Rfam assigns this 67-nucleotide sequence from Bombyx mori to the family "mir-2774 microRNA precursor family". Lineage of the source: Eukaryota > Bilateria > Altocrustacea > Dicondylia > Bombyx. Rfam links the family to the GO terms RISC complex and miRNA-mediated post-transcriptional gene silencing.
RNA sequence: AUAACAUUCGGACCGUCGGUCUACCGAGCAAUUUCGUCCGCUCAGUGGAAAAUCCUGCUUUUGUCGU
Dot-bracket structure: ...(((...(.(..((...(((((.((((..........)))).)))))..))..).)...)))...